This 89-nucleotide RNA sequence from Roseobacter sp. CCS2 belongs to the Rfam family "Rhodo-rpoB RNA".
The sequence is in the family's curated seed alignment.
It is annotated as a cis-regulatory element.

[Rfam]
RNA sequence: GUUUCGGGAGAGGUGUUUGGGAUACACCUCAGGUAUUGAAAUGACCCUACCGUAAAUCGGACGCGUUUUGGUAUCCCAGCCAAAGCGCG
Numbered sequence: 001g002u003u004u005c006g007g008g009a010g011a012g013g014u015g016u017u018u019g020g021g022a023u024a025c026a027c028c029u030c031a032g033g034u035a036u037u038g039a040a041a042u043g044a045c046c047c048u049a050c051c052g053u054a055a056a057u058c059g060g061a062c063g064c065g066u067u068u069u070g071g072u073a074u075c076c077c078a079g080c081c082a083a084a085g086c087g088c089g
Base pairs, nucleotide, nucleotide: 001042002041003040004039005038010030011029012028013027014026015025016024062089063088064087065086067084068083069082070081071080